[Rfam]
RNA sequence: GGGUGUCGUCGGCAUUUCGCACGACGACAGGUUCAUGCGAUGGUCGGGCCGCCUCG
Numbered sequence: 001g002g003g004u005g006u007c008g009u010c011g012g013c014a015u016u017u018c019g020c021a022c023g024a025c026g027a028c029a030g031g032u033u034c035a036u037g038c039g040a041u042g043g044u045c046g047g048g049c050c051g052c053c054u055c056g
Base pairs, nucleotide, nucleotide: 005028006027007026008025009024010023011022038056039055040054042053043052044051
RNA: nhaA-I RNA